A member of the RNA family "U4 spliceosomal RNA" from Sapajus apella, 139 nucleotides long. About the family: U4 small nuclear RNA (U4 snRNA) is a component of the major U2-dependent spliceosome. The organism belongs to Sapajus, within Eukaryota. It is annotated as a spliceosomal small nuclear RNA.
RNA sequence: AGCUUUGCGCAGUGGCAGUAUCGUAGCCAAUGAGGUUUAUCUGAGGCGCGAUUAUUGCUAAUUGAAAACUUUUCCUAAUACCACACCAUGACAACUUGCAAUACAGUUGGCACUGGCAAUUCUUGAGUCUCUACGGAGA
Numbered sequence: 001a002g003c004u005u006u007g008c009g010c011a012g013u014g015g016c017a018g019u020a021u022c023g024u025a026g027c028c029a030a031u032g033a034g035g036u037u038u039a040u041c042u043g044a045g046g047c048g049c050g051a052u053u054a055u056u057g058c059u060a061a062u063u064g065a066a067a068a069c070u071u072u073u074c075c076u077a078a079u080a081c082c083a084c085a086c087c088a089u090g091a092c093a094a095c096u097u098g099c100a101a102u103a104c105a106g107u108u109g110g111c112a113c114u115g116g117c118a119a120u121u122c123u124u125g126a127g128u129c130u131c132u133a134c135g136g137a138g139a
Stems, first nucleotide, its partner, number of pairs: 020052005026047003034042002086116002089112002092109005128139004